[Rfam]
This 124-nucleotide sequence from Ahrensia marina belongs to the Rfam family "Alphaproteobacterial ar14". It is annotated as a small RNA. For this family Rfam cites "A survey of sRNA families in alpha-proteobacteria" (del Val et al., RNA Biol, 2012). Rfam 15.1 lists 784 matches to the family in 332 species. The match comes from Rfam's covariance-model search (74 bits).
RNA sequence: CUUUUCAACAACAGCACAUAAUUCCUCCCAGAUGGUGUUGUUGGUCAGGGUCAAGCAUCCUCCUCCCAGCUUGAUCCAAGAAUUAUGACCGGACUGCAUCCUCCUCCCGCAGUCCGGUCUUUUU
Numbered sequence: 001c002u003u004u005u006c007a008a009c010a011a012c013a014g015c016a017c018a019u020a021a022u023u024c025c026u027c028c029c030a031g032a033u034g035g036u037g038u039u040g041u042u043g044g045u046c047a048g049g050g051u052c053a054a055g056c057a058u059c060c061u062c063c064u065c066c067c068a069g070c071u072u073g074a075u076c077c078a079a080g081a082a083u084u085a086u087g088a089c090c091g092g093a094c095u096g097c098a099u100c101c102u103c104c105u106c107c108c109g110c111a112g113u114c115c116g117g118u119c120u121u122u123u124u
Stems, first nucleotide, its partner, number of pairs: 007042003011038003015034002017031001048077009087119011